This 95-nucleotide RNA sequence from a Thermoflexales bacterium belongs to the Rfam family "Selenocysteine transfer RNA". Taxonomically the source falls in Thermoflexales (Bacteria, Bacillati, Chloroflexota, Thermoflexia). The base pairs follow the family's consensus structure, which is taken from published work.
RNA sequence: GGGGGUGGUUGUGGCCCGGUGGCUGCCACGGUCUUCAAAACCGCUGGCCGGUCGCGCAGAGCGGGCGGCGGUGGGUUCGACUCCCAUCCAUCCCC
Numbered sequence: 001g002g003g004g005g006u007g008g009u010u011g012u013g014g015c016c017c018g019g020u021g022g023c024u025g026c027c028a029c030g031g032u033c034u035u036c037a038a039a040a041c042c043g044c045u046g047g048c049c050g051g052u053c054g055c056g057c058a059g060a061g062c063g064g065g066c067g068g069c070g071g072u073g074g075g076u077u078c079g080a081c082u083c084c085c086a087u088c089c090a091u092c093c094c095c
Stems, first nucleotide, its partner, number of pairs: 001095008011026006029043004047069004072086004